[Rfam]
RNA sequence: UGCCCAUCCAGAGCGGCCGAGAGACCUGGCUCGACGACGCCGCAGCAACCCCCCGACCUCGGGUGCGGGUGCUACCGCCCGGGACGAUGGAGG
Numbered sequence: 001u002g003c004c005c006a007u008c009c010a011g012a013g014c015g016g017c018c019g020a021g022a023g024a025c026c027u028g029g030c031u032c033g034a035c036g037a038c039g040c041c042g043c044a045g046c047a048a049c050c051c052c053c054c055g056a057c058c059u060c061g062g063g064u065g066c067g068g069g070u071g072c073u074a075c076c077g078c079c080c081g082g083g084a085c086g087a088u089g090g091a092g093g
Stems, first nucleotide, its partner, number of pairs: 001093001004090005013043005021032003026081001028079002044073004049069002051065001053063002077085001
Dot-bracket structure: (..(((((....(((((...(((..[.[[)))......)))))((((.(((.((.......)).)..))))))...(]].]...))))))..)
Background:
This 93-nucleotide sequence from Pseudonocardia oroxyli belongs to the Rfam family "SAM riboswitch aptamer (S box leader)". About the family: The SAM riboswitch is found upstream of a number of genes which code for proteins involved in methionine or cysteine biosynthesis in Gram-positive bacteria. The SAM riboswitch acts at the level of transcription termination control. The predicted structure consists of a complex stem-loop region followed by a single stem loop terminator region. The organism belongs to Pseudonocardia, within Bacteria. Its family is annotated with regulation of gene expression in the Gene Ontology.